Guanidine-I riboswitch aptamer: a 106-nucleotide RNA from Paenibacillus cremeus.
RNA sequence: UUAAUCGUCUUCUAGGGUUCCGCGGUGGUGCAAAUCAUCAUCGGUCCGGUCCGAGAGAAGACGCACAGCGCAGCUGUGUACACGGAGGGAUAAAAGCCCGGGAGGA
Numbered sequence: 001u002u003a004a005u006c007g008u009c010u011u012c013u014a015g016g017g018u019u020c021c022g023c024g025g026u027g028g029u030g031c032a033a034a035u036c037a038u039c040a041u042c043g044g045u046c047c048g049g050u051c052c053g054a055g056a057g058a059a060g061a062c063g064c065a066c067a068g069c070g071c072a073g074c075u076g077u078g079u080a081c082a083c084g085g086a087g088g089g090a091u092a093a094a095a096g097c098c099c100g101g102g103a104g105g106a
Base pairs, nucleotide, nucleotide: 007062008061009060010059011058012057015052016051020049021048022046023043024042025041026040027039028038029037030036063079064078065077066076067075068074069073081101083104087099088098089097